[Rfam]
Nucleotides: 204
Base pairs, nucleotide, nucleotide: 001106002105003104004103005102006101007100008044009043010042011041012040014036015035016034018029019028020027021026047098048097049096050095056091057090058089059088060085062083063082064081133196134195135194136193137192138191139190150182151181152180153179154178155177161167162166
Number, partner (000 for none) and nucleotide at each position: 001106c002105c003104a004103a005102c006101a007100u008044g009043g010042a011041u012040a013000u014036c015035c016034u017000g018029g019028g020027a021026g022000g023000u024000c025000a026021c027020u028019c029018u030000c031000c032000c033000c034016a035015g036014g037000u038000u039000c040012u041011g042010u043009c044008c045000u046000g047098g048097u049096g050095g051000c052000g053000u054000a055000g056091g057090g058089g059088a060085g061000c062083a063082c064081a065000g066000g067000g068000c069000u070000c071000u072000g073000g074000c075000c076000u077000a078000g079000g080000a081064u082063g083062u084000a085060c086000a087000g088059u089058c090057c091056c092000u093000u094000u095050c096049c097048a098047c099000a100007a101006u102005g103004u104003u105002g106001g107000a108000g109000a110000u111000a112000a113000a114000g115000c116000u117000g118000g119000g120000c121000c122000u123000u124000g125000a126000g127000u128000c129000u130000g131000c132000a133196c134195c135194u136193g137192c138191a139190u140000a141000u142000u143000c144000c145000u146000a147000u148000g149000a150182c151181u152180u153179c154178u155177c156000a157000g158000a159000g160000u161167c162166c163000u164000g165000u166162g167161g168000u169000a170000g171000a172000u173000g174000a175000c176000u177155g178154a179153g180152g181151a182150g183000a184000u185000a186000a187000a188000c189000c190139a191138u192137g193136c194135a195134g196133g197000a198000a199000a200000c201000a202000u203000u204000a